[Rfam]
This 169-nucleotide RNA from Nannospalax galili belongs to the Rfam family "Small nucleolar RNA SNORA5". About the family: ACA5 is a member of the H/ACA class of snoRNA that guide the sites of modification of uridines to pseudouridines.
RNA sequence: UGUGGAGGUCAAACACGUGGCCUACUGAUAGGAAGAAGGAAGCCCAAAGCCUUAAGGAAAGCAUGUUUAAAAGCAAGCUUUGACCCAAAAGGCUGCCAUGGAAAUACUGUGACUCCUGGACCCUGUACCCACCUUGCCUGGGCUCAGGGAUAAAUUUCAUCAAGCAUCA
Number, nucleotide and partner (000 for none) at each position: 001u000002g096003u095004g094005g093006a000007g000008g000009u000010c000011a000012a000013a000014c000015a000016c082017g081018u000019g079020g078021c077022c000023u075024a000025c073026u072027g000028a000029u000030a000031g000032g000033a000034a000035g000036a000037a000038g000039g000040a000041a000042g000043c000044c000045c000046a000047a000048a000049g000050c000051c000052u000053u000054a000055a000056g000057g000058a000059a000060a000061g000062c000063a000064u000065g000066u000067u000068u000069a000070a000071a000072a026073g025074c000075a023076a000077g021078c020079u019080u000081u017082g016083a000084c000085c000086c000087a000088a000089a000090a000091g000092g000093c005094u004095g003096c002097c000098a000099u000100g000101g000102a000103a000104a000105u000106a000107c000108u000109g000110u162111g161112a160113c000114u000115c000116c000117u000118g000119g000120a000121c149122c148123c147124u146125g145126u000127a000128c000129c000130c000131a000132c000133c000134u000135u000136g000137c000138c000139u000140g000141g000142g000143c000144u000145c125146a124147g123148g122149g121150a000151u000152a000153a000154a000155u000156u000157u000158c000159a000160u112161c111162a110163a000164g000165c000166a000167u000168c000169a000